[Rfam]
Annotation:
The record is a 209-nucleotide RNA from Onychostoma macrolepis, which matches "Small nucleolar RNA SNORD17" in Rfam. Gene Ontology terms of the family: nucleolus and RNA processing. Rfam classes the family as a C/D-box small nucleolar RNA.
RNA sequence: GUGGCGUGAUGAACGUGUUUAUCCAUUCGCUGAGCGCUGCUGGUUCUGUCCCUCAGCGGCCUUGCGGUUCGUUCUGGGCCGCAGGGUUACAGCAGUCUGGUUCUGCUCGGCUGCUCCAAUGUUCUAUUGGGUCGACCGUGGCAGGAUCCGAUGCGCUGGUGCGAGGGUCAGACCGGUUCUGACAAAGACGAAUAGACGUGUCUGAUCAC
Numbered sequence: 001g002u003g004g005c006g007u008g009a010u011g012a013a014c015g016u017g018u019u020u021a022u023c024c025a026u027u028c029g030c031u032g033a034g035c036g037c038u039g040c041u042g043g044u045u046c047u048g049u050c051c052c053u054c055a056g057c058g059g060c061c062u063u064g065c066g067g068u069u070c071g072u073u074c075u076g077g078g079c080c081g082c083a084g085g086g087u088u089a090c091a092g093c094a095g096u097c098u099g100g101u102u103c104u105g106c107u108c109g110g111c112u113g114c115u116c117c118a119a120u121g122u123u124c125u126a127u128u129g130g131g132u133c134g135a136c137c138g139u140g141g142c143a144g145g146a147u148c149c150g151a152u153g154c155g156c157u158g159g160u161g162c163g164a165g166g167g168u169c170a171g172a173c174c175g176g177u178u179c180u181g182a183c184a185a186a187g188a189c190g191a192a193u194a195g196a197c198g199u200g201u202c203u204g205a206u207c208a209c
Stems, first nucleotide, its partner, number of pairs: 010208003014204001017201002020198001023195001025193005030187002034183001039177004045172004050167002052163001054161001055157002058088013092154002095152003104143002106140001109137002112134002115131007

A reference for the family is Huttenhofer et al. (2001), "RNomics: an experimental approach that identifies 201 candidates for novel, small, non-messenger RNAs in mouse", EMBO J. The match comes from Rfam's covariance-model search (55 bits). Lineage of the source: Eukaryota > Metazoa > Teleostomi > Cypriniformes > Onychostoma. Rfam's curators write: The snoRNA HBI-43 belongs to the C/D family of snoRNAs, guiding 2'O-ribose methylation at position U3797 of the 28S rRNA. Pseudouridylation in position U3797 is predicted to be guided by the H/ACA snoRNA ACA48.